[Rfam]
RNA sequence: GCAGCUUCAAUCUAGCGGGAGGGGUGUACAGGCAAGGUACAUACAGUUACCACAGUUUCACCUCGGGAAGGUCUGAGAUUAAGUCGAUAAACGUUCUAGCCGGACGGUACCAUAAGGGUACGUACGGGAAUCAGAAAUAGCUUUCCGUUACCAAUUAGCCCAGGAAACUUCGUACGAAGUAGAGGUAUUUGGAAACGAAAAGAUGGAAACCCGUAUGAUUCGCUAUUUGAGUACAAUCCGCAAGCCAAAAGAUUUACAUUUUGGAACUCAAUUCAGACUAAUCUGAAGCUGC
Numbered sequence: 001g002c003a004g005c006u007u008c009a010a011u012c013u014a015g016c017g018g019g020a021g022g023g024g025u026g027u028a029c030a031g032g033c034a035a036g037g038u039a040c041a042u043a044c045a046g047u048u049a050c051c052a053c054a055g056u057u058u059c060a061c062c063u064c065g066g067g068a069a070g071g072u073c074u075g076a077g078a079u080u081a082a083g084u085c086g087a088u089a090a091a092c093g094u095u096c097u098a099g100c101c102g103g104a105c106g107g108u109a110c111c112a113u114a115a116g117g118g119u120a121c122g123u124a125c126g127g128g129a130a131u132c133a134g135a136a137a138u139a140g141c142u143u144u145c146c147g148u149u150a151c152c153a154a155u156u157a158g159c160c161c162a163g164g165a166a167a168c169u170u171c172g173u174a175c176g177a178a179g180u181a182g183a184g185g186u187a188u189u190u191g192g193a194a195a196c197g198a199a200a201a202g203a204u205g206g207a208a209a210c211c212c213g214u215a216u217g218a219u220u221c222g223c224u225a226u227u228u229g230a231g232u233a234c235a236a237u238c239c240g241c242a243a244g245c246c247a248a249a250a251g252a253u254u255u256a257c258a259u260u261u262u263g264g265a266a267c268u269c270a271a272u273u274c275a276g277a278c279u280a281a282u283c284u285g286a287a288g289c290u291g292c
Stems, first nucleotide, its partner, number of pairs: 001292004007286003012244002015241004021064005036051004040046001073276005082220004092106005107121005122216007141202003245264006

Rfam assigns this 292-nucleotide RNA from Heterotrigona itama to the family "Nuclear RNase P".
A search with the family's covariance model found it, with a score of 134 bits.